About this RNA: Rfam assigns this 229-nucleotide RNA from Miscanthus lutarioriparius to the family "MIR6217 microRNA precursor family". The family has 2 seed sequences and 2,266 matches in Rfam 15.1. Rfam links the family to the GO terms RISC complex and miRNA-mediated post-transcriptional gene silencing. NCBI's taxonomy places the organism under Eukaryota, Tracheophyta, Liliopsida, Panicoideae, Miscanthus.
RNA sequence: UGGCUAUAAAAUUACUUAUUUUGUAACCACUUUGAGUUACGAUAAUUACUAUGUUAAUUUAUGAGAUUAUAGUAACUCUUUAUUAAGUUGUUUACUAUAACGUUAUGGUAAAUAUCCACAUGUGUUAUUAGUAACCCAACUAUCGUAAAUAUAUAUUGACAUUAUCGUAAAUUAGUAUAUAAAAUUAUCGUAAAUAAAGGUAGCUAUAGAAUAACUUAUUUUGUAGCUG
Numbered sequence: 001u002g003g004c005u006a007u008a009a010a011a012u013u014a015c016u017u018a019u020u021u022u023g024u025a026a027c028c029a030c031u032u033u034g035a036g037u038u039a040c041g042a043u044a045a046u047u048a049c050u051a052u053g054u055u056a057a058u059u060u061a062u063g064a065g066a067u068u069a070u071a072g073u074a075a076c077u078c079u080u081u082a083u084u085a086a087g088u089u090g091u092u093u094a095c096u097a098u099a100a101c102g103u104u105a106u107g108g109u110a111a112a113u114a115u116c117c118a119c120a121u122g123u124g125u126u127a128u129u130a131g132u133a134a135c136c137c138a139a140c141u142a143u144c145g146u147a148a149a150u151a152u153a154u155a156u157u158g159a160c161a162u163u164a165u166c167g168u169a170a171a172u173u174a175g176u177a178u179a180u181a182a183a184a185u186u187a188u189c190g191u192a193a194a195u196a197a198a199g200g201u202a203g204c205u206a207u208a209g210a211a212u213a214a215c216u217u218a219u220u221u222u223g224u225a226g227c228u229g
Base pairs, nucleotide, nucleotide: 001229002228003227004226005225006224007223008222009221010220011219012218014216016214017213018212019211020210021209022208023207024206025205027203029201030200031199032198033197037193038192039191040190041189042188043187044186045185046184047183050179051178052177053176054175055174056173057172058171059170060169061168062167065166066165067164069162070161074156079149080148081147082146083145087143088142090140091139092138093133094132095131096130097129098127099126100125101124102123103122107117108116